RNA: mir-H4 microRNA precursor family
RNA sequence: GGGACGGGUGAGUUCGCUAGGCAAGCACGGACUGGCGGUUACACGUGCAUGCGUGCCGAGUGAACUCUCCCGCCCC
Numbered sequence: 001g002g003g004a005c006g007g008g009u010g011a012g013u014u015c016g017c018u019a020g021g022c023a024a025g026c027a028c029g030g031a032c033u034g035g036c037g038g039u040u041a042c043a044c045g046u047g048c049a050u051g052c053g054u055g056c057c058g059a060g061u062g063a064a065c066u067c068u069c070c071c072g073c074c075c076c
Stems, first nucleotide, its partner, number of pairs: 001076003005072004010067006017060002020057004025052003031046002033043001